[Rfam]
RNA sequence: GCUGAUGACAUGAUGUUAACAAAAGGCCGAAUUGUAGCUCUUCCGUCAAGCAGUUUGUUCUCAGUACGGAUAGAGCGUUGACAAAAACUAGACCGAAGCGUUUAGCUGAUCCAUCAAC
Numbered sequence: 001g002c003u004g005a006u007g008a009c010a011u012g013a014u015g016u017u018a019a020c021a022a023a024a025g026g027c028c029g030a031a032u033u034g035u036a037g038c039u040c041u042u043c044c045g046u047c048a049a050g051c052a053g054u055u056u057g058u059u060c061u062c063a064g065u066a067c068g069g070a071u072a073g074a075g076c077g078u079u080g081a082c083a084a085a086a087a088c089u090a091g092a093c094c095g096a097a098g099c100g101u102u103u104a105g106c107u108g109a110u111c112c113a114u115c116a117a118c
Base pairs, nucleotide, nucleotide: 004118006116007115015111017109026035027034036107037106038105039104043100044098046096047095050093053076054075056072057071058070059069060068078092080088
Shown here is a 118-nucleotide sequence from Triplophysa rosa, a member of the family "Small nucleolar RNA SNORD89". It is annotated as a C/D-box small nucleolar RNA. A search with the family's covariance model found it, with a score of 44 bits. Pairs were carried over by alignment from the consensus structure, which was predicted with RNAalifold. Lineage of the source: Eukaryota > Opisthokonta > Metazoa > Deuterostomia > Triplophysa. About the family: snoRNA HBII-289 belongs to the family of C/D snoRNAs. It is the human orthologue of the mouse MBII-289 and has no identified RNA target.